Eukaryotic large subunit ribosomal RNA: a 431-nucleotide part of an RNA from Trichinella sp. T8.
[Rfam]
RNA sequence: CGACCUCAGAUCAGACGAGAUCACCCGCUAAAUUUAAGCAUAUCAAUAAGCGGUGGAAAAGAAACGAAAACGAAUUCUCCAAGUAGCGGCGAGCGAAACGAGAGCAGUCCAUACACCGAAGUCGGCGAGCAGUUGUGUUCGUCAACAGUGUGGUGUUAAAGGUGUCGUUGCAUGUGCUGAAAUCAGUUCGUAGGCUCCCUUGAUUGGGGCUUCAGAGCGGGUGCAGGACCCAUAACGAACGAUGUUUUGUGCAUGGUGUCGCGGCUCCUAAUCGAGUCGGGUUGCUUGAGACUGCAGCCCAAAGCGGGUGGUAAAUCUCACCCAAGACUAAAUAUUCGUACGAGACCGAUAGCGAACAAGUACCGCGAGGGAAAGUUGAAAAGAACUCUGAAGAGAGAGUUCAACAGGACGUGAAACCGUUGACAGGCAAA
Numbered sequence: 001c002g003a004c005c006u007c008a009g010a011u012c013a014g015a016c017g018a019g020a021u022c023a024c025c026c027g028c029u030a031a032a033u034u035u036a037a038g039c040a041u042a043u044c045a046a047u048a049a050g051c052g053g054u055g056g057a058a059a060a061g062a063a064a065c066g067a068a069a070a071c072g073a074a075u076u077c078u079c080c081a082a083g084u085a086g087c088g089g090c091g092a093g094c095g096a097a098a099c100g101a102g103a104g105c106a107g108u109c110c111a112u113a114c115a116c117c118g119a120a121g122u123c124g125g126c127g128a129g130c131a132g133u134u135g136u137g138u139u140c141g142u143c144a145a146c147a148g149u150g151u152g153g154u155g156u157u158a159a160a161g162g163u164g165u166c167g168u169u170g171c172a173u174g175u176g177c178u179g180a181a182a183u184c185a186g187u188u189c190g191u192a193g194g195c196u197c198c199c200u201u202g203a204u205u206g207g208g209g210c211u212u213c214a215g216a217g218c219g220g221g222u223g224c225a226g227g228a229c230c231c232a233u234a235a236c237g238a239a240c241g242a243u244g245u246u247u248u249g250u251g252c253a254u255g256g257u258g259u260c261g262c263g264g265c266u267c268c269u270a271a272u273c274g275a276g277u278c279g280g281g282u283u284g285c286u287u288g289a290g291a292c293u294g295c296a297g298c299c300c301a302a303a304g305c306g307g308g309u310g311g312u313a314a315a316u317c318u319c320a321c322c323c324a325a326g327a328c329u330a331a332a333u334a335u336u337c338g339u340a341c342g343a344g345a346c347c348g349a350u351a352g353c354g355a356a357c358a359a360g361u362a363c364c365g366c367g368a369g370g371g372a373a374a375g376u377u378g379a380a381a382a383g384a385a386c387u388c389u390g391a392a393g394a395g396a397g398a399g400u401u402c403a404a405c406a407g408g409a410c411g412u413g414a415a416a417c418c419g420u421u422g423a424c425a426g427g428c429a430a431a
Base pairs, nucleotide, nucleotide: 024055025053026052027051028050029049035042036041065072066071076103077102078101079100086094087093106329107328108327109326114155115154116153117152118151120149121146122145124143125142126141127140128139129138161268162267164265165264166263167262169261170260174252175251176250177249179247180246186240187239188238189237190236194210196209197208198207199206213217220230221229279300280299281298282297283296284295285294306323307322308321309320310319363370364369386397387396388395389394
The family's consensus secondary structure is taken from published work. The source organism's lineage runs through Eukaryota, Protostomia, Ecdysozoa, Nematoda and Trichinella.